Overview:
A member of the RNA family "6C RNA" from Rhodococcus rhodnii, 74 nucleotides long. The match comes from Rfam's covariance-model search (70 bits). A reference for the family is Weinberg et al. (2007), "Identification of 22 candidate structured RNAs in bacteria using the CMfinder comparative genomics pipeline", Nucleic Acids Res. Rfam classes the family as a cis-regulatory element. Taxonomically the source falls in Rhodococcus rhodnii (Bacteria, Bacillati, Mycobacteriales, Nocardiaceae). Rfam links the family to the GO term sporulation. The base pairs follow the family's consensus structure, which is taken from published work.
RNA sequence: CGUGCUCAGCCCGACCCCCCGGGGCUGAGCCCAGACGACCCCCGCCUCCUCCCCCCUGGCGGGGGUCGUCCUCU
Numbered sequence: 001c002g003u004g005c006u007c008a009g010c011c012c013g014a015c016c017c018c019c020c021g022g023g024g025c026u027g028a029g030c031c032c033a034g035a036c037g038a039c040c041c042c043c044g045c046c047u048c049c050u051c052c053c054c055c056c057u058g059g060c061g062g063g064g065g066u067c068g069u070c071c072u073c074u
Base pairs, nucleotide, nucleotide: 002032004030005029006028007027008026009025010024011023012022034070035069036068037067038066039065040064041063042062043061044060045059046058